Notes
A member of the RNA family "mir-1343 microRNA precursor family" from Corythaixoides concolor, 78 nucleotides long. Rfam links the family to the GO terms RISC complex and miRNA-mediated post-transcriptional gene silencing. The base pairs follow the family's consensus structure, which was predicted with RNAalifold.
RNA sequence: CCAGGGGGGAUGAGCCUCUGCGCUCCCCCGGAGCGGCCUCUGGCCGCUCCGGGGGAGCGCAGAGGCUCAUCCCCCUCG
Number, nucleotide and partner (000 for none) at each position: 001c000002c000003a076004g075005g074006g000007g073008g072009g071010a070011u000012g068013a067014g000015c065016c064017u063018c062019u000020g060021c059022g058023c057024u000025c055026c054027c053028c052029c051030g050031g049032a000033g000034c046035g045036g044037c043038c042039u000040c000041u000042g038043g037044c036045c035046g034047c000048u000049c031050c030051g029052g028053g027054g026055g025056a000057g023058c022059g021060c020061a000062g018063a017064g016065g015066c000067u013068c012069a000070u010071c009072c008073c007074c005075c004076u003077c000078g000